[Rfam]
RNA sequence: GUUGCUUCUUAUGGUGAACUCCCUUUUAUUUCAAAGUAGGGGACGUUCUAGUUUCCGAAGCAUAUAGAAAUAUCAAGUAACCAGUUUUAAACAGCGUUGUGUAAUAUUUUAUAUCUUACACUAUGCUACCUGUCUGCUGGUACAUUU
Numbered sequence: 001g002u003u004g005c006u007u008c009u010u011a012u013g014g015u016g017a018a019c020u021c022c023c024u025u026u027u028a029u030u031u032c033a034a035a036g037u038a039g040g041g042g043a044c045g046u047u048c049u050a051g052u053u054u055c056c057g058a059a060g061c062a063u064a065u066a067g068a069a070a071u072a073u074c075a076a077g078u079a080a081c082c083a084g085u086u087u088u089a090a091a092c093a094g095c096g097u098u099g100u101g102u103a104a105u106a107u108u109u110u111a112u113a114u115c116u117u118a119c120a121c122u123a124u125g126c127u128a129c130c131u132g133u134c135u136g137c138u139g140g141u142a143c144a145u146u147u
Stems, first nucleotide, its partner, number of pairs: 003062006016048004020043005080141006093127003097123001099121003

The record is a 147-nucleotide RNA sequence from Lupinus albus, which matches "small nucleolar RNA snoR137" in Rfam. The base pairs follow the family's consensus structure, which was predicted with RNAalifold. The source organism's lineage runs through Eukaryota, eudicotyledons, Papilionoideae, Genisteae and Lupinus. It scores 108 bits against the family's covariance model. Rfam links the family to the GO terms nucleolus and RNA processing.